[Rfam]
Rfam assigns this 163-nucleotide RNA from Tetrapisispora phaffii to the family "Small nucleolar RNA snR70".
RNA sequence: UUACAUGAUGAUUAUAUUUGUCGACCGGGCGGACAUAUUAGUAUCAGUGAUGGAGUAGUCCUAUAUUGAUCUUUCUUUUUGUGUACAAAUUUUUAAAAGGAGAGUGUUAGGACAUUAUUGCUCCAUUGUUGAGAAUUGAUGAUUGGUCACAAGAUAUCUGAUU
Numbered sequence: 001u002u003a004c005a006u007g008a009u010g011a012u013u014a015u016a017u018u019u020g021u022c023g024a025c026c027g028g029g030c031g032g033a034c035a036u037a038u039u040a041g042u043a044u045c046a047g048u049g050a051u052g053g054a055g056u057a058g059u060c061c062u063a064u065a066u067u068g069a070u071c072u073u074u075c076u077u078u079u080u081g082u083g084u085a086c087a088a089a090u091u092u093u094u095a096a097a098a099g100g101a102g103a104g105u106g107u108u109a110g111g112a113c114a115u116u117a118u119u120g121c122u123c124c125a126u127u128g129u130u131g132a133g134a135a136u137u138g139a140u141g142a143u144u145g146g147u148c149a150c151a152a153g154a155u156a157u158c159u160g161a162u163u
Stems, first nucleotide, its partner, number of pairs: 007158004018152004023148005036141007044132003048128010058113006071104010
It scores 152 bits against the family's covariance model. The family's consensus secondary structure was predicted with CMfinder.